[Rfam]
RNA sequence: AGUAAGUGGAGCCCAGAACCCACUUAAAUAAACGGGGCGAAACCGAAAAGCCAAAUGAGUAGGAGCUUA
Numbered sequence: 001a002g003u004a005a006g007u008g009g010a011g012c013c014c015a016g017a018a019c020c021c022a023c024u025u026a027a028a029u030a031a032a033c034g035g036g037g038c039g040a041a042a043c044c045g046a047a048a049a050g051c052c053a054a055a056u057g058a059g060u061a062g063g064a065g066c067u068u069a
Stems, first nucleotide, its partner, number of pairs: 006023004036052003043063002
Shown here is a 69-nucleotide sequence from Adhaeribacter soli, a member of the family "DUF805 RNA". Taxonomically the source falls in Adhaeribacter (Bacteria, Pseudomonadati, Cytophagia, Hymenobacteraceae). Rfam 15.1 lists 281 matches to the family in 219 species. By type it is a cis-regulatory element.